[Rfam]
RNA sequence: UUUGCUUCAUAAUGGUGAACUCUCUUAGAUUAUAAAAAAGUGAGAGAUGUUCAAGUUUCCGGAGCAAAGAUCAAUUUGGCCAGAAUUAAACAGCUCUGUGUUUUUCUCUUCAAUGUUCACAGUGUUACCUGUCUUCUGGUAUAUUC
Number, nucleotide and partner (000 for none) at each position: 001u000002u000003u066004g065005c064006u063007u062008c061009a000010u000011a000012a000013u000014g000015g000016u053017g052018a051019a050020c049021u047022c046023u045024c044025u043026u000027a000028g000029a000030u000031u000032a000033u000034a000035a000036a000037a000038a000039a000040g000041u000042g000043a025044g024045a023046g022047a021048u000049g020050u019051u018052c017053a016054a000055g000056u000057u000058u000059c000060c000061g008062g007063a006064g005065c004066a003067a000068a000069g000070a000071u000072c000073a000074a000075u000076u000077u000078g000079g140080c139081c138082a137083g136084a135085a134086u000087u000088a000089a000090a000091c000092a126093g125094c124095u000096c122097u121098g120099u119100g118101u000102u000103u000104u000105u000106c000107u000108c000109u000110u000111c000112a000113a000114u000115g000116u000117u000118c100119a099120c098121a097122g096123u000124g094125u093126u092127a000128c000129c000130u000131g000132u000133c000134u085135u084136c083137u082138g081139g080140u079141a000142u000143a000144u000145u000146c000
Overview: Shown here is a 146-nucleotide RNA sequence from Brassica rapa, a member of the family "small nucleolar RNA snoR137". NCBI's taxonomy places the organism under Eukaryota, Streptophytina, Gunneridae, malvids, Brassica rapa. It is one of the family's seed sequences. The family's RNA type in Rfam is H/ACA-box small nucleolar RNA.